This 201-nucleotide sequence from Miscanthus lutarioriparius belongs to the Rfam family "MIR1435 microRNA precursor family". NCBI's taxonomy places the organism under Eukaryota, Streptophytina, Poales, Saccharinae, Miscanthus. Gene Ontology terms of the family: RISC complex and miRNA-mediated post-transcriptional gene silencing. Rfam 15.1 lists 1,765 matches to the family in 31 species. The match comes from Rfam's covariance-model search (115 bits).
[Rfam]
RNA sequence: UAGUUUUGUCCUAAGUCAAACUUGUCUCACUUUGACAAAGUUUAUAGACCAAAUGUACAAAUGUCUACAAUAUCAAAUAAAUGCACUAUCAAAAUAUACUUCAUGGUGUCUCUGGUGAAUCUUAUUUGAUGUUGUAGAUGUUUGUGUAUUUUUCUAUAAACUUGAUGAAAGCUUGAGAAGUUUGACUUUGGGCAAAGCUAA
Numbered sequence: 001u002a003g004u005u006u007u008g009u010c011c012u013a014a015g016u017c018a019a020a021c022u023u024g025u026c027u028c029a030c031u032u033u034g035a036c037a038a039a040g041u042u043u044a045u046a047g048a049c050c051a052a053a054u055g056u057a058c059a060a061a062u063g064u065c066u067a068c069a070a071u072a073u074c075a076a077a078u079a080a081a082u083g084c085a086c087u088a089u090c091a092a093a094a095u096a097u098a099c100u101u102c103a104u105g106g107u108g109u110c111u112c113u114g115g116u117g118a119a120u121c122u123u124a125u126u127u128g129a130u131g132u133u134g135u136a137g138a139u140g141u142u143u144g145u146g147u148a149u150u151u152u153u154c155u156a157u158a159a160a161c162u163u164g165a166u167g168a169a170a171g172c173u174u175g176a177g178a179a180g181u182u183u184g185a186c187u188u189u190g191g192g193c194a195a196a197g198c199u200a201a
Base pairs, nucleotide, nucleotide: 005196006195007194008193009192011190013188014187015186016185017184018183019182020181021180022179023178025176026175031170032169033168035166045156046155047154048153051152052151053150056146057145058144060142061141062140063139064138065137066136067135068134069133073129074128075127076126077125078124079123080122